[Rfam]
RNA: Ribosomal protein L10 leader
RNA sequence: UAACUUCGUUAUCAAAUACCACAGACAGUAACGGCGUAUGCUUAAUAAGGUUACCGAGGUAGAUGAAAGUUCAUAUCAAUGUACUUUUGCUCUCGCUGUCUGCGAGGGCUUUCUUUCUAAAUGU
Numbered sequence: 001u002a003a004c005u006u007c008g009u010u011a012u013c014a015a016a017u018a019c020c021a022c023a024g025a026c027a028g029u030a031a032c033g034g035c036g037u038a039u040g041c042u043u044a045a046u047a048a049g050g051u052u053a054c055c056g057a058g059g060u061a062g063a064u065g066a067a068a069g070u071u072c073a074u075a076u077c078a079a080u081g082u083a084c085u086u087u088u089g090c091u092c093u094c095g096c097u098g099u100c101u102g103c104g105a106g107g108g109c110u111u112u113c114u115u116u117c118u119a120a121a122u123g124u
Stems, first nucleotide, its partner, number of pairs: 028054005034041002089109008